[Rfam]
RNA sequence: UAAUUGAAUAGGUAAAAGCCAGAGACAGUAGGUUCCCUUCGGGGGUAAUUUCCUACCGAGGUUCACACCUUUGAAAAACUUUGUAGAGACUUCUGUUUCUUAAUGUCUCUGAAAGACUCUGGCUCGUGGCAGUCAGAGUCUAUUGUUUUGGCAGA
Numbered sequence: 001u002a003a004u005u006g007a008a009u010a011g012g013u014a015a016a017a018g019c020c021a022g023a024g025a026c027a028g029u030a031g032g033u034u035c036c037c038u039u040c041g042g043g044g045g046u047a048a049u050u051u052c053c054u055a056c057c058g059a060g061g062u063u064c065a066c067a068c069c070u071u072u073g074a075a076a077a078a079c080u081u082u083g084u085a086g087a088g089a090c091u092u093c094u095g096u097u098u099c100u101u102a103a104u105g106u107c108u109c110u111g112a113a114a115g116a117c118u119c120u121g122g123c124u125c126g127u128g129g130c131a132g133u134c135a136g137a138g139u140c141u142a143u144u145g146u147u148u149u150g151g152c153a154g155a
Base pairs, nucleotide, nucleotide: 028056029055030054031053032052034044035043036042115140116139117138118137119136120135121134122133123132124131
RNA: Ribosomal protein L10 leader
Organism: Mastigocoleus testarum